This 65-nucleotide RNA from Salarias fasciatus belongs to the Rfam family "Selenocysteine insertion sequence 1". A search with the family's covariance model found it, with a score of 35 bits. The incorporation of selenocysteine into a protein sequence is directed by an in-frame UGA codon (usually a stop codon) within the coding region of the mRNA. Selenoprotein mRNAs contain a conserved secondary structure in the 3' UTR that is required for the distinction of UGA stop from UGA selenocysteine. The selenocysteine insertion sequence (SECIS) is around 60 nt in length and adopts a hairpin structure which is sufficiently well-defined and conserved to act as a computational screen for selenoprotein genes. By type it is a cis-regulatory element. The family's consensus secondary structure is taken from published work.
RNA sequence: UUUGCUUUGAUGACGAUUUGUUUCCAAACUCUGCUGAGAGAACAGAUCUGAUGCUACACAGCACA
Numbered sequence: 001u002u003u004g005c006u007u008u009g010a011u012g013a014c015g016a017u018u019u020g021u022u023u024c025c026a027a028a029c030u031c032u033g034c035u036g037a038g039a040g041a042a043c044a045g046a047u048c049u050g051a052u053g054c055u056a057c058a059c060a061g062c063a064c065a
Stems, first nucleotide, its partner, number of pairs: 001065001003063003015048009029038003